A member of the RNA family "Small nucleolar RNA Z13/snr52" from Macrophomina phaseolina, 100 nucleotides long. The organism belongs to Macrophomina phaseolina, within Eukaryota. Pairs were carried over by alignment from the consensus structure, which was predicted with PFOLD. Gene Ontology terms of the family: nucleolus and RNA processing. It scores 82 bits against the family's covariance model. The family's RNA type in Rfam is C/D-box small nucleolar RNA.
RNA sequence: GUCGCUAGCCUGAUGAAGCAUUUCGGAUGUAAAUUACACAAACCACCGAGUGCGCAAAACCGUGUGGAUACCUCCGUUGCCUUCCUUCUGAGCCUGGCGC
Number, nucleotide and partner (000 for none) at each position: 001g000002u000003c099004g098005c097006u000007a000008g000009c000010c000011u000012g000013a000014u000015g000016a000017a000018g000019c000020a000021u000022u000023u000024c076025g075026g074027a073028u000029g000030u000031a000032a000033a000034u000035u000036a000037c000038a000039c000040a000041a000042a000043c000044c000045a000046c000047c000048g000049a000050g000051u000052g000053c000054g000055c000056a000057a000058a000059a000060c000061c000062g000063u000064g000065u000066g000067g000068a000069u000070a000071c000072c000073u027074c026075c025076g024077u000078u000079g000080c000081c000082u000083u000084c000085c000086u000087u000088c000089u000090g000091a000092g000093c000094c000095u000096g000097g005098c004099g003100c000